mir-147 microRNA precursor family: a 78-nucleotide RNA from Molossus molossus.
Gene Ontology terms of the family: RISC complex and miRNA-mediated post-transcriptional gene silencing.
The family's consensus secondary structure was predicted with RNAalifold.
NCBI's taxonomy places the organism under Eukaryota, Craniata, Theria, Boreoeutheria, Molossus.

[Rfam]
RNA sequence: UUUGUAUCGAGUGGAACAUUUCUACAUAGACUAGACCACGGAAACCUGGUGUGUGGAAGUGCUUCUGCUACAUGUUUA
Numbered sequence: 001u002u003u004g005u006a007u008c009g010a011g012u013g014g015a016a017c018a019u020u021u022c023u024a025c026a027u028a029g030a031c032u033a034g035a036c037c038a039c040g041g042a043a044a045c046c047u048g049g050u051g052u053g054u055g056g057a058a059g060u061g062c063u064u065c066u067g068c069u070a071c072a073u074g075u076u077u078a
Stems, first nucleotide, its partner, number of pairs: 001078001004075004010069007017061012031049002